[Rfam]
RNA sequence: CCGUCGAGGACGCCGAGUCCUACCACCUCGACGGGGUACCCCAGCAGCACCGGUAGGAGCGGAGGACCCAACCUCUGGCCACACGGCCUCGGGGUGAAGUCCUACGGCGGGGCAUCGCCCGGUCGAAGGGCGGGAUGGUCUCCAUCCCAACCCGACAGCUAACUCCGCAGGCGAGAGGAGACAGCAUGA
Number, nucleotide and partner (000 for none) at each position: 001c000002c000003g000004u000005c000006g000007a000008g000009g000010a000011c173012g172013c171014c170015g000016a000017g000018u058019c057020c056021u055022a054023c053024c052025a000026c000027c000028u000029c000030g000031a000032c000033g000034g000035g000036g000037u000038a000039c000040c000041c000042c000043a000044g000045c000046a000047g000048c000049a000050c000051c000052g024053g023054u022055a021056g020057g019058a018059g168060c167061g166062g165063a164064g163065g000066a000067c000068c000069c091070a000071a000072c000073c000074u000075c000076u000077g000078g000079c000080c000081a000082c000083a000084c000085g000086g000087c000088c000089u000090c000091g069092g153093g152094g151095u000096g000097a000098a000099g000100u130101c129102c128103u127104a000105c000106g000107g000108c000109g000110g000111g000112g000113c000114a000115u000116c000117g000118c000119c000120c000121g000122g000123u000124c000125g000126a000127a103128g102129g101130g100131c000132g000133g147134g146135a145136u144137g000138g000139u000140c000141u000142c000143c000144a136145u135146c134147c133148c000149a000150a000151c094152c093153c092154g000155a000156c000157a000158g000159c000160u000161a000162a000163c064164u063165c062166c061167g060168c059169a000170g014171g013172c012173g011174a000175g000176a000177g000178g000179a000180g000181a000182c000183a000184g000185c000186a000187u000188g000189a000
Notes:
Rfam assigns this 189-nucleotide RNA from Janibacter indicus to the family "c-di-AMP riboswitch aptamer (ydaO/yuaA leader)". NCBI's taxonomy places the organism under Bacteria, Actinomycetota, Actinomycetes, Intrasporangiaceae, Janibacter.